[Rfam]
RNA sequence: AAAUUGGGUAGAGGCGCUUUGAGAAUAGUAAUUAGUUUUAGUAGGCAUACAGUGAGAACUAAUGAAAGGGUAAAAAGCCGAAAGAGGAGAGAAGGUAUUCAAUUCUCUUGGAUAUGUAUAGAAUAUAUACAUAACUGUCAUGAAAAUGGAGAGCUACUAAAUUU
Numbered sequence: 001a002a003a004u005u006g007g008g009u010a011g012a013g014g015c016g017c018u019u020u021g022a023g024a025a026u027a028g029u030a031a032u033u034a035g036u037u038u039u040a041g042u043a044g045g046c047a048u049a050c051a052g053u054g055a056g057a058a059c060u061a062a063u064g065a066a067a068g069g070g071u072a073a074a075a076a077g078c079c080g081a082a083a084g085a086g087g088a089g090a091g092a093a094g095g096u097a098u099u100c101a102a103u104u105c106u107c108u109u110g111g112a113u114a115u116g117u118a119u120a121g122a123a124u125a126u127a128u129a130c131a132u133a134a135c136u137g138u139c140a141u142g143a144a145a146a147u148g149g150a151g152a153g154c155u156a157c158u159a160a161a162u163u164u
Stems, first nucleotide, its partner, number of pairs: 007158005016078005023071001031063008082109007091100003110136002113133008138149004